Shown here is an 87-nucleotide sequence from Photobacterium gaetbulicola, a member of the family "Group II catalytic intron D1-D4-1". The base pairs follow the family's consensus structure.
[Rfam]
RNA sequence: CUAAUGCAGCAGUGAUGCUGUGUGAUGGGAAAUAAGAAGUCAGCAGAAGGCAUAGUACCUUGGGGAAGUACAACCCAAGGGAAGGCC
Numbered sequence: 001c002u003a004a005u006g007c008a009g010c011a012g013u014g015a016u017g018c019u020g021u022g023u024g025a026u027g028g029g030a031a032a033u034a035a036g037a038a039g040u041c042a043g044c045a046g047a048a049g050g051c052a053u054a055g056u057a058c059c060u061u062g063g064g065g066a067a068g069u070a071c072a073a074c075c076c077a078a079g080g081g082a083a084g085g086c087c
Stems, first nucleotide, its partner, number of pairs: 001027001004023008040047002049087003058080006